The family of this 77-nucleotide RNA sequence from Leptobrachium leishanense is "mir-16 microRNA precursor family". The organism belongs to Leptobrachium, within Eukaryota. The match comes from Rfam's covariance-model search (40 bits). Clan: mir-15 clan.
[Rfam]
RNA sequence: ACCUUCCAAAACAAGCACCAAAAUAAUGAUGAUAAUUUCAUAAUACUAUCAUUAUUUUGGUGCUUGCUUUGGAAGGU
Numbered sequence: 001a002c003c004u005u006c007c008a009a010a011a012c013a014a015g016c017a018c019c020a021a022a023a024u025a026a027u028g029a030u031g032a033u034a035a036u037u038u039c040a041u042a043a044u045a046c047u048a049u050c051a052u053u054a055u056u057u058u059g060g061u062g063c064u065u066g067c068u069u070u071g072g073a074a075g076g077u
Stems, first nucleotide, its partner, number of pairs: 001077003005073003010070001012066007020057001022056008